Overview: The record is a 93-nucleotide RNA sequence from Corchorus olitorius, which matches "MIR397 microRNA precursor family" in Rfam. The family's consensus secondary structure was predicted with WAR. It scores 84 bits against the family's covariance model. For this family Rfam cites "High throughput approaches reveal splicing of primary microRNA transcripts and tissue specific expression of mature microRNAs in Vitis vinifera" (Mica et al., BMC Genomics, 2009). The source organism's lineage runs through Eukaryota, Mesangiospermae, Malvales, Apeibeae and Corchorus. The family has 7 seed sequences and 496 matches in Rfam 15.1. Rfam links the family to the GO terms RISC complex and miRNA-mediated post-transcriptional gene silencing.
[Rfam]
RNA sequence: UGAAGAAACAUCAUUGAGUGCAGCGUUGAUGAACUUUUUUUCGCUAAUUUUUCCGAGAUGAUUUCGCCAGCGCUGCACUCAAUCAUGUUUUUG
Numbered sequence: 001u002g003a004a005g006a007a008a009c010a011u012c013a014u015u016g017a018g019u020g021c022a023g024c025g026u027u028g029a030u031g032a033a034c035u036u037u038u039u040u041u042c043g044c045u046a047a048u049u050u051u052u053c054c055g056a057g058a059u060g061a062u063u064u065c066g067c068c069a070g071c072g073c074u075g076c077a078c079u080c081a082a083u084c085a086u087g088u089u090u091u092u093g
Stems, first nucleotide, its partner, number of pairs: 006090006013083016030066003